[Rfam]
RNA: mir-981 microRNA precursor family
RNA sequence: ACGUAGACGUCCGGGUUUCGUGACAGGCGAGCCGUUCAUAAAACUUGGUUCGUUGUCGACGAAACCUGCACGAUCUGCAA
Numbered sequence: 001a002c003g004u005a006g007a008c009g010u011c012c013g014g015g016u017u018u019c020g021u022g023a024c025a026g027g028c029g030a031g032c033c034g035u036u037c038a039u040a041a042a043a044c045u046u047g048g049u050u051c052g053u054u055g056u057c058g059a060c061g062a063a064a065c066c067u068g069c070a071c072g073a074u075c076u077g078c079a080a
Stems, first nucleotide, its partner, number of pairs: 003078004012068009029051005